RNA sequence: UGCAAGUAUUUUAUUAUUUAGAAGCAACUGUUUCUUGUACGGUUUGUGUAUUAAUCU
Numbered sequence: 001u002g003c004a005a006g007u008a009u010u011u012u013a014u015u016a017u018u019u020a021g022a023a024g025c026a027a028c029u030g031u032u033u034c035u036u037g038u039a040c041g042g043u044u045u046g047u048g049u050a051u052u053a054a055u056c057u
Stems, first nucleotide, its partner, number of pairs: 018037001020035006
The record is a 57-nucleotide sequence from Gossypium stocksii, which matches "Plastid-rps18 3UTR RNA" in Rfam. Rfam classes the family as a cis-regulatory element. The family has 238 seed sequences and 1,462 matches in Rfam 15.1. Rfam describes the family as follows. Plastid rps18 is a non-coding RNA (ncRNA) present in plastids.